[Rfam]
RNA sequence: UUUGCGUGCGGGUAGUUAAGGCUACGCCGUAUACUUCGCGGAAUCGAAUUAACGUUUAAGCGAUCUUUCAAGAUAGCCGACCGCGAGGGAAAGAGCCGCGAAAGCGGCUUUUUUAUUGUUCAAA
Numbered sequence: 001u002u003u004g005c006g007u008g009c010g011g012g013u014a015g016u017u018a019a020g021g022c023u024a025c026g027c028c029g030u031a032u033a034c035u036u037c038g039c040g041g042a043a044u045c046g047a048a049u050u051a052a053c054g055u056u057u058a059a060g061c062g063a064u065c066u067u068u069c070a071a072g073a074u075a076g077c078c079g080a081c082c083g084c085g086a087g088g089g090a091a092a093g094a095g096c097c098g099c100g101a102a103a104g105c106g107g108c109u110u111u112u113u114u115a116u117u118g119u120u121c122a123a124a
Stems, first nucleotide, its partner, number of pairs: 007031005012025005034088006044080003047056003060077002063074003089114010
Annotation:
The family of this 124-nucleotide RNA sequence is "DUF3800-I RNA". Rfam describes the family as follows. Actinobacteria, Firmicutes, Fusobacteria, Proteobacteria (1 example), Tenericutes (2 examples). It is one of the family's seed sequences.